[Rfam]
This 174-nucleotide sequence belongs to the Rfam family "Group II catalytic intron D1-D4-3". The literature on the family includes a 2003 paper in Crit Rev Biochem Mol Biol by Lehmann and Schmidt, "Group II introns: structure and catalytic versatility of large natural ribozymes". Its family is annotated with Group II intron splicing in the Gene Ontology.
RNA sequence: GGAACCGCGAGGUUCUUAGCACGAAAGAAGGCCGUAGCAAAGGCACGACCGUAAGAACAUGAAACGGCAGCGAGGCAUGGCGUGGGCGAUGAGAAUGCGAGCAUCCGCGAAAUCCAAAAGUCACCGAAAGACACGUUGUGUAGAGCCGUGCGGCACGGGCCGAAAGUUCGUACA
Numbered sequence: 001g002g003a004a005c006c007g008c009g010a011g012g013u014u015c016u017u018a019g020c021a022c023g024a025a026a027g028a029a030g031g032c033c034g035u036a037g038c039a040a041a042g043g044c045a046c047g048a049c050c051g052u053a054a055g056a057a058c059a060u061g062a063a064a065c066g067g068c069a070g071c072g073a074g075g076c077a078u079g080g081c082g083u084g085g086g087c088g089a090u091g092a093g094a095a096u097g098c099g100a101g102c103a104u105c106c107g108c109g110a111a112a113u114c115c116a117a118a119a120g121u122c123a124c125c126g127a128a129a130g131a132c133a134c135g136u137u138g139u140g141u142a143g144a145g146c147c148g149u150g151c152g153g154c155a156c157g158g159g160c161c162g163a164a165a166g167u168u169c170g171u172a173c174a
Stems, first nucleotide, its partner, number of pairs: 001016006031173001037167002042161003046157002049153004064149005075141003079137006088114003093108001
Dot-bracket structure: ((((((....))))))..............(.....((...(((.((.((((...........(((((......(((.((((((...(((..(..............)...))).................)))))).)))...)))))))))..)).)))....)).....).